RNA: MIR535 microRNA precursor family
RNA sequence: CGAAGUGGAUGACAGCGAGAGGGAGCACGCAAGUAAACAGUCAUGACCGGGUUCAUGGCCGCCAACCAGCGUGCUCUCUCUCGUUGUCACUGCAAC
Numbered sequence: 001c002g003a004a005g006u007g008g009a010u011g012a013c014a015g016c017g018a019g020a021g022g023g024a025g026c027a028c029g030c031a032a033g034u035a036a037a038c039a040g041u042c043a044u045g046a047c048c049g050g051g052u053u054c055a056u057g058g059c060c061g062c063c064a065a066c067c068a069g070c071g072u073g074c075u076c077u078c079u080c081u082c083g084u085u086g087u088c089a090c091u092g093c094a095a096c
Stems, first nucleotide, its partner, number of pairs: 010089005016083002020079002023076001025074006033066002